[Rfam]
RNA sequence: AGAGACCUUCGGGCAGGGUGUAAUUCCCGACCGGCGGUAAGUCUGUAUAAUAUAUGUACAGAUUCAGCCCGCGAGUCCGCUCGUCAGUACUGCGCUGACACCUGGACAGAUUCGGUGCAAAGCCGAAGCCGACGGUAUAGUCCGGAUGGGAGAAGGUUCAU
Numbered sequence: 001a002g003a004g005a006c007c008u009u010c011g012g013g014c015a016g017g018g019u020g021u022a023a024u025u026c027c028c029g030a031c032c033g034g035c036g037g038u039a040a041g042u043c044u045g046u047a048u049a050a051u052a053u054a055u056g057u058a059c060a061g062a063u064u065c066a067g068c069c070c071g072c073g074a075g076u077c078c079g080c081u082c083g084u085c086a087g088u089a090c091u092g093c094g095c096u097g098a099c100a101c102c103u104g105g106a107c108a109g110a111u112u113c114g115g116u117g118c119a120a121a122g123c124c125g126a127a128g129c130c131g132a133c134g135g136u137a138u139a140g141u142c143c144g145g146a147u148g149g150g151a152g153a154a155g156g157u158u159c160a161u
Stems, first nucleotide, its partner, number of pairs: 004158007016028003030141002032131002034072004067129002075107005111127005133144003
Shown here is a 161-nucleotide RNA sequence from Ktedonosporobacter rubrisoli, a member of the family "FMN riboswitch aptamer (RFN element)". Taxonomically the source falls in Ktedonosporobacter (Bacteria, Bacillati, Ktedonobacteria, Ktedonosporobacteraceae).